The family of this 113-nucleotide sequence from Pseudolabrys sp. Root1462 is "Rhizobiales sRNA Atu_At1". The literature on the family includes a 2012 paper in RNA Biol by Wilms et al., "Deep sequencing uncovers numerous small RNAs on all four replicons of the plant pathogen Agrobacterium tumefaciens".
RNA sequence: CCGCGCCGGUUGACAACCGGCCGUGAUGGGGAUGUUGGACGCAGGUCAUUUUGCCGGUUUCUGCCUGCGACAGCAACGCAUUGGUACGCGUCGCCAUCUAACCCAUUGCCGGC
Numbered sequence: 001c002c003g004c005g006c007c008g009g010u011u012g013a014c015a016a017c018c019g020g021c022c023g024u025g026a027u028g029g030g031g032a033u034g035u036u037g038g039a040c041g042c043a044g045g046u047c048a049u050u051u052u053g054c055c056g057g058u059u060u061c062u063g064c065c066u067g068c069g070a071c072a073g074c075a076a077c078g079c080a081u082u083g084g085u086a087c088g089c090g091u092c093g094c095c096a097u098c099u100a101a102c103c104c105a106u107u108g109c110c111g112g113c
Stems, first nucleotide, its partner, number of pairs: 006112004011023002014020001025107006034098001036096002040069007070085002074083001

Description: The family's consensus secondary structure was predicted with CMfinder. The source organism's lineage runs through Bacteria, Pseudomonadati, Hyphomicrobiales, Xanthobacteraceae and Pseudolabrys.